A member of the RNA family "Clostridiales-1 RNA" from Clostridiaceae bacterium AF18-31LB, 172 nucleotides long.
RNA sequence: UGAUACCAGGGUAGAAAGGUCGGAAAUCCGAUGCAAGCUUGCUUGCAGGAGGAUUUAUGAACUUGAGACCCGCCAAAAACAUGAGUAAGCAGCCAUUUUUGUAAAAAAAUGAGCGAAUUACGAAUGUUUUUGAGGAUUGUGGGAGUGCGAAGCACGGAACAAUCCGGUAUCA
Numbered sequence: 001u002g003a004u005a006c007c008a009g010g011g012u013a014g015a016a017a018g019g020u021c022g023g024a025a026a027u028c029c030g031a032u033g034c035a036a037g038c039u040u041g042c043u044u045g046c047a048g049g050a051g052g053a054u055u056u057a058u059g060a061a062c063u064u065g066a067g068a069c070c071c072g073c074c075a076a077a078a079a080c081a082u083g084a085g086u087a088a089g090c091a092g093c094c095a096u097u098u099u100u101g102u103a104a105a106a107a108a109a110u111g112a113g114c115g116a117a118u119u120a121c122g123a124a125u126g127u128u129u130u131u132g133a134g135g136a137u138u139g140u141g142g143g144a145g146u147g148c149g150a151a152g153c154a155c156g157g158a159a160c161a162a163u164c165c166g167g168u169a170u171c172a
Stems, first nucleotide, its partner, number of pairs: 001172007010070003017063002020060003024056006032048001033046005075131008085121004092114002094111007134165007145155004
A search with the family's covariance model found it, with a score of 138 bits.